[Rfam]
A member of the RNA family "SAM riboswitch aptamer (S box leader)" from Saliterribacillus persicus, 106 nucleotides long. Pairs were carried over by alignment from the consensus structure, which is taken from published work.
RNA sequence: CUCUUAUCAAGAGUGGCAGAGGGAAUAGGCCCUAUGAAGCCCGGCAACCGUCAAUUUUAUUGAAAAGGUGCUAAAUCCUACAGGUUAAUAGCCUGGUAGAUAAGAG
Number, nucleotide and partner (000 for none) at each position: 001c106002u105003c104004u103005u102006a101007u100008c099009a000010a000011g000012a000013g042014u000015g041016g040017c039018a000019g000020a000021g032022g031023g030024a000025a000026u080027a079028g078029g077030c023031c022032c021033u000034a000035u000036g000037a000038a000039g017040c016041c015042c013043g072044g071045c070046a069047a000048c068049c067050g000051u063052c062053a061054a000055u000056u000057u000058u000059a000060u000061u053062g052063a051064a000065a000066a000067g049068g048069u046070g045071c044072u043073a000074a000075a000076u098077c029078c028079u027080a026081c095082a094083g093084g092085u091086u090087a000088a000089u000090a086091g085092c084093c083094u082095g081096g000097u000098a076099g008100a007101u006102a005103a004104g003105a002106g001

Annotation
NCBI's taxonomy places the organism under Bacteria, Bacillati, Bacillota, Bacillaceae, Saliterribacillus.